[Rfam]
RNA sequence: UGGUUCCCGCCCCCUGUAACAGCAACUCCAUGUGGAAGUGCCCACUGGUUCCAGUGGGGCUGCUGUUAUCUGGGGCGAGGGC
Numbered sequence: 001u002g003g004u005u006c007c008c009g010c011c012c013c014c015u016g017u018a019a020c021a022g023c024a025a026c027u028c029c030a031u032g033u034g035g036a037a038g039u040g041c042c043c044a045c046u047g048g049u050u051c052c053a054g055u056g057g058g059g060c061u062g063c064u065g066u067u068a069u070c071u072g073g074g075g076c077g078a079g080g081g082c
Stems, first nucleotide, its partner, number of pairs: 010075003016069008026059006033053003
Overview
Shown here is an 82-nucleotide RNA from Homo sapiens, a member of the family "mir-194 microRNA precursor family". NCBI's taxonomy places the organism under Eukaryota, Opisthokonta, Sarcopterygii, Simiiformes, Homo. Rfam 15.1 lists 936 matches to the family in 630 species. Rfam links the family to the GO terms RISC complex and miRNA-mediated post-transcriptional gene silencing.